[Rfam]
RNA sequence: GUUUGAGAAUCUUCUGUUAAAAUCGCUCACGUCCUGUGGGCAUAGCAGAAGUUACCACAUCCUUUGGA
Numbered sequence: 001g002u003u004u005g006a007g008a009a010u011c012u013u014c015u016g017u018u019a020a021a022a023u024c025g026c027u028c029a030c031g032u033c034c035u036g037u038g039g040g041c042a043u044a045g046c047a048g049a050a051g052u053u054a055c056c057a058c059a060u061c062c063u064u065u066g067g068a
Base pairs, nucleotide, nucleotide: 011051012050013049014048015047016046017045026040027039028038029037030036055067056066057065
RNA: Bacillaceae-1 RNA